RNA sequence: CAUCGCGAUGCUCUUCAAUUAGGAGACAUCGUGAUGAGGAUUUUGUCGAAGCGUCAGGUCAAGGAGUUAGUACUGUAUUCGCCUCAGCACAUCGCACGCCUGGAAAAGGCCGGCCAAUUCCCCAAGAGGGUACAGCUUGGCCCGAGCCGGGUCGGAUGGGUUGAGGACGAAGCGCUGGACUGGCUGCAGAAGCGCCUGGAAGCCCGUGACGAACCUGUCCGGCACUCCUGAAAAGGAGCGGGUGGUCGGGAUUGCAAGCCCG
Numbered sequence: 001c002a003u004c005g006c007g008a009u010g011c012u013c014u015u016c017a018a019u020u021a022g023g024a025g026a027c028a029u030c031g032u033g034a035u036g037a038g039g040a041u042u043u044u045g046u047c048g049a050a051g052c053g054u055c056a057g058g059u060c061a062a063g064g065a066g067u068u069a070g071u072a073c074u075g076u077a078u079u080c081g082c083c084u085c086a087g088c089a090c091a092u093c094g095c096a097c098g099c100c101u102g103g104a105a106a107a108g109g110c111c112g113g114c115c116a117a118u119u120c121c122c123c124a125a126g127a128g129g130g131u132a133c134a135g136c137u138u139g140g141c142c143c144g145a146g147c148c149g150g151g152u153c154g155g156a157u158g159g160g161u162u163g164a165g166g167a168c169g170a171a172g173c174g175c176u177g178g179a180c181u182g183g184c185u186g187c188a189g190a191a192g193c194g195c196c197u198g199g200a201a202g203c204c205c206g207u208g209a210c211g212a213a214c215c216u217g218u219c220c221g222g223c224a225c226u227c228c229u230g231a232a233a234a235g236g237a238g239c240g241g242g243u244g245g246u247c248g249g250g251a252u253u254g255c256a257a258g259c260c261c262g
Stems, first nucleotide, its partner, number of pairs: 001036010012026005054199006063187001065185007073177001076174001078172002080169002082166002085163004090158004096152002100149001102147001108142003112137003120130003202247001204245004219241003225238005249261002
Shown here is a 262-nucleotide RNA from Pontixanthobacter luteolus, a member of the family "Ruegeria trans44 sRNA". The family's RNA type in Rfam is small RNA. The organism belongs to Pontixanthobacter, within Bacteria. The base pairs follow the family's consensus structure, which was predicted with RNAfold. Rfam 15.1 lists 33 matches to the family in 29 species. The literature on the family includes a 2016 paper in Front Microbiol by Rivers et al., "Experimental Identification of Small Non-Coding RNAs in the Model Marine Bacterium Ruegeria pomeroyi DSS-3".